[Rfam]
RNA sequence: GGACCGCCUCAGGGCGGUCCGGUGCACGCUCCGGUACCUGACACGGCCGGGGUUC
Numbered sequence: 001g002g003a004c005c006g007c008c009u010c011a012g013g014g015c016g017g018u019c020c021g022g023u024g025c026a027c028g029c030u031c032c033g034g035u036a037c038c039u040g041a042c043a044c045g046g047c048c049g050g051g052g053u054u055c
Stems, first nucleotide, its partner, number of pairs: 001020008026054001029052007
Shown here is a 55-nucleotide RNA, a member of the family "L17-Actino-Proteobacteria ribosomal protein leader". It is one of the family's seed sequences. A reference for the family is Eckert and Weinberg (2020), "Discovery of 20 novel ribosomal leader candidates in bacteria and archaea", BMC Microbiol. It is annotated as a cis-regulatory leader.